[Rfam]
RNA sequence: CGUACGAAAGGGCAAAAUCACUGAAAAGUGGUGGCGCAAAACUAUAGGGGCUAAUGGAGAAAAAGGGGACAUCCUCCUCCUACGCCAGCCAGUUACCGAA
Numbered sequence: 001c002g003u004a005c006g007a008a009a010g011g012g013c014a015a016a017a018u019c020a021c022u023g024a025a026a027a028g029u030g031g032u033g034g035c036g037c038a039a040a041a042c043u044a045u046a047g048g049g050g051c052u053a054a055u056g057g058a059g060a061a062a063a064a065g066g067g068g069a070c071a072u073c074c075u076c077c078u079c080c081u082a083c084g085c086c087a088g089c090c091a092g093u094u095a096c097c098g099a100a
Stems, first nucleotide, its partner, number of pairs: 012037002017032006040094004047090002049086003056080004

The family of this 100-nucleotide RNA sequence from Bacillus salinus is "c-di-GMP-I riboswitch aptamer". NCBI's taxonomy places the organism under Bacteria, Bacillota, Bacilli, Bacillaceae, Bacillus.